[Rfam]
RNA sequence: UUUCGUAGUCGUCUCAAGUAAAUCUCGUGCGGCUGCUGUUUCAUCCACAGGCGCUCUAGAUUUCCUUCUGAUGACUAUGGA
Numbered sequence: 001u002u003u004c005g006u007a008g009u010c011g012u013c014u015c016a017a018g019u020a021a022a023u024c025u026c027g028u029g030c031g032g033c034u035g036c037u038g039u040u041u042c043a044u045c046c047a048c049a050g051g052c053g054c055u056c057u058a059g060a061u062u063u064c065c066u067u068c069u070g071a072u073g074a075c076u077a078u079g080g081a
Base pairs, nucleotide, nucleotide: 006077007076008075009074010073011072012071013070016067017066018065020063021062022061023060024059025058027056029054030053031052033050034049035048